[Rfam]
RNA: Microsporidia small subunit ribosomal RNA, nucleotides 1 to 501
Organism: Janacekia debaisieuxi
Nucleotides: 501
Stems, first nucleotide, its partner, number of pairs: 004020005023490009033384005040376001041342001047340003051337003056083002060080002065075002090295003100218003104214003109211002114207006125155002132147006220266003227257003232254008270292004274285004297318002300315003320331004348374001350373003356369005407427006434480006447474004456463002
Number, partner (000 for none) and nucleotide at each position: 001000c002000a003000c004020c005019a006018g007017g008016u009000u010000g011000a012000u013000u014000c015000u016008g017007c018006c019005u020004g021000a022000c023490g024489u025488a026487u027486g028485u029484g030483c031482u032000u033384g034383u035382c036381u037380u038000a039000a040376a041342g042000a043000u044000u045000u046000a047340g048339c049338c050000a051337u052336g053335c054000a055000a056083g057082u058000u059000a060080g061079u062000g063000a064000a065075a066074c067000u068000u069000u070000u071000u072000a073000a074066g075065u076000g077000a078000a079061a080060c081000g082057a083056c084000a085000g086000a087000c088000a089000g090295c091294u092293c093000a094000g095000u096000a097000a098000u099000a100218c101217a102216g103000u104214a105213a106212u107000g108000a109211u110210u111000a112000a113000c114207u115206u116205g117204c118203c119202u120000a121000a122000u123000a124000u125155a126154g127000g128000a129000u130000a131000a132147c133146c134145u135144u136143g137142g138000u139000a140000a141000c142137c143136u144135a145134a146133g147132g148000c149000u150000a151000a152000c153000a154126c155125u156000u157000u158000u159000u160000u161000c162000a163000a164000a165000u166000u167000a168000a169000a170000a171000u172000g173000u174000a175000g176000g177000u178000g179000a180000a181000a182000c183000u184000a185000u186000u187000u188000u189000u190000a191000a192000u193000u194000u195000u196000u197000u198000u199000u200000u201000g202119g203118g204117g205116c206115a207114a208000u209000u210110a211109a212106g213105u214104u215000u216102c217101u218100g219000a220266c221265c222264u223000a224000u225000c226000a227257g228256c229255u230000a231000g232254a233253u234252g235251u236250u237249a238248g239247g240000g241000u242000a243000a244000a245000g246000g247239c248238u249237u250236a251235a252234c253233a254232u255229g256228g257227c258000u259000a260000c261000a262000a263000c264222g265221g266220g267000u268000a269000a270292c271291g272290g273289a274285g275284a276283a277282u278000c279000a280000g281000g282277g283276u284275u285274u286000g287000a288000u289273u290272c291271c292270g293092g294091a295090g296000a297318g298317g299000g300315a301314g302313c303000c304000u305000g306000a307000g308000a309000a310000u311000u312000a313302g314301c315300u316000a317298c318297c319000a320331c321330g322329u323328c324000u325000a326000a327000g328323g329322a330321u331320g332000g333000c334000a335053g336052c337051a338049g339048g340047c341000g342041c343000g344000a345000a346000a347000a348374u349000u350373a351372c352371c353000c354000a355000a356369u357368u358367c359366c360365u361000u362000a363000a364000u365360g366359g367358g368357a369356g370000a371352g372351g373350u374348a375000g376040u377000g378000a379000a380037a381036a382035g383034a384033c385000a386000u387000g388000a389000u390000u391000u392000u393000c394000a395000u396000u397000u398000c399000g400000a401000u402000u403000g404000a405000g406000u407427c408426g409425g410424u411423a412422c413000a414000u415000u416000a417000a418000a419000u420000a421000a422412g423411u424410a425409c426408u427407g428000a429000a430000g431000c432000a433000a434480c435479u436478g437477g438476a439475g440000g441000g442000c443000a444000a445000g446000u447474c448473u449472g450471g451000u452000g453000c454000c455000a456463g457462c458000a459000g460000c461000c462457g463456c464000g465000g466000u467000a468000a469000u470000u471450c472449c473448a474447g475439c476438u477437c478436c479435a480434g481000u482031a483030g484029c485028g486027c487026a488025u489024a490023u491000a492000a493000u494000a495000g496000u497000u498000g499000c500000u501000g